[Rfam]
RNA sequence: GGCCUAAGAUGUGAGAAUAAUAUUUGCUACUCUUGAUGGGGUCACCCAUUUGAUGAUCCUUAUCCACCAAGAUCUCUGAGGCC
Numbered sequence: 001g002g003c004c005u006a007a008g009a010u011g012u013g014a015g016a017a018u019a020a021u022a023u024u025u026g027c028u029a030c031u032c033u034u035g036a037u038g039g040g041g042u043c044a045c046c047c048a049u050u051u052g053a054u055g056a057u058c059c060u061u062a063u064c065c066a067c068c069a070a071g072a073u074c075u076c077u078g079a080g081g082c083c
Base pairs, nucleotide, nucleotide: 001083002082003081004080

Rfam assigns this 83-nucleotide sequence from Musa acuminata to the family "Small nucleolar RNA SNORD24".